[Rfam]
The record is a 100-nucleotide RNA sequence from Rubellimicrobium thermophilum, which matches "TPP riboswitch aptamer (THI element)" in Rfam.

RNA sequence: CCCCACGGACAGGGGCGUCCGCGCAUUUGGCGCGGUCUGAGAAGCACCCUUCGAACCUGAACCAGAUCAUGCUGGCGUAGGAAGUCCGCGGUGCGACGAA
Number, nucleotide and partner (000 for none) at each position: 001c000002c000003c000004c000005a000006c088007g087008g086009a085010c084011a050012g049013g048014g047015g000016c044017g037018u000019c035020c034021g033022c032023g031024c030025a000026u000027u000028u000029g000030g024031c023032g022033c021034g020035g019036u000037c017038u000039g000040a000041g000042a000043a000044g016045c000046a000047c014048c013049c012050u011051u000052c000053g000054a000055a000056c081057c080058u079059g078060a000061a000062c075063c074064a073065g072066a000067u000068c000069a000070u000071g000072c065073u064074g063075g062076c000077g000078u059079a058080g057081g056082a000083a000084g010085u009086c008087c007088g006089c000090g000091g000092u000093g000094c000095g000096a000097c000098g000099a000100a000
Lineage of the source: Bacteria > Pseudomonadati > Pseudomonadota > Rubellimicrobium > Rubellimicrobium thermophilum.